A member of the RNA family "GA-cis RNA", 92 nucleotides long. The base pairs follow the family's consensus structure, which is taken from published work.

[Rfam]
RNA sequence: GAGAGGAGGUUCCCUAAUGAUGUGAAGCAUCAUUUUCUAAUGGGGACCGACGAAAUGCCGCCGAAGCUUUAGCUGAGGGGAUAUGCCGGAUG
Numbered sequence: 001g002a003g004a005g006g007a008g009g010u011u012c013c014c015u016a017a018u019g020a021u022g023u024g025a026a027g028c029a030u031c032a033u034u035u036u037c038u039a040a041u042g043g044g045g046a047c048c049g050a051c052g053a054a055a056u057g058c059c060g061c062c063g064a065a066g067c068u069u070u071a072g073c074u075g076a077g078g079g080g081a082u083a084u085g086c087c088g089g090a091u092g
Base pairs, nucleotide, nucleotide: 008048009047010046011045012044013043017033018032019031020030021029022028057082059080061078062077065074066073